[Rfam]
RNA sequence: UUGUCUCUUAAAGAAAAAAAACAAAAGGGAAAAUAACGAUUCGGGGUUACGCCCGAAUCCUCACUGCUAACGUGAGACUAAUUUUUGAGCAGGUAAAGGCUGCCCCUAAGGUGACCCACCUACUUUGUGGGAUGCCUGGGAGUCACGAUCUGCCCG
Numbered sequence: 001u002u003g004u005c006u007c008u009u010a011a012a013g014a015a016a017a018a019a020a021a022c023a024a025a026a027g028g029g030a031a032a033a034u035a036a037c038g039a040u041u042c043g044g045g046g047u048u049a050c051g052c053c054c055g056a057a058u059c060c061u062c063a064c065u066g067c068u069a070a071c072g073u074g075a076g077a078c079u080a081a082u083u084u085u086u087g088a089g090c091a092g093g094u095a096a097a098g099g100c101u102g103c104c105c106c107u108a109a110g111g112u113g114a115c116c117c118a119c120c121u122a123c124u125u126u127g128u129g130g131g132a133u134g135c136c137u138g139g140g141a142g143u144c145a146c147g148a149u150c151u152g153c154c155c156g
Base pairs, nucleotide, nucleotide: 001026038059039058040057041056042055043054044053045052060076061075062074063073064072090156092154093153094152097151098150099149101147102146106140107139109137110136111135112134113133115131116130117129118128119127
Dot-bracket structure: (........................)...........((((((((......))))))))(((((.......))))).............(.(((..(((.((...((.(((((.(((((.......))))).))))).)).....)).)))))).)
U12 minor spliceosomal RNA: a 156-nucleotide sequence from Carlito syrichta.
The match comes from Rfam's covariance-model search (97 bits).
Lineage of the source: Eukaryota > Chordata > Vertebrata > Primates > Carlito.
The base pairs follow the family's consensus structure.
Rfam 15.1 lists 2,106 matches to the family in 1,170 species.
Gene Ontology terms of the family: U12 snRNP, mRNA branch site recognition and pre-mRNA branch point binding.
The family's RNA type in Rfam is spliceosomal small nuclear RNA.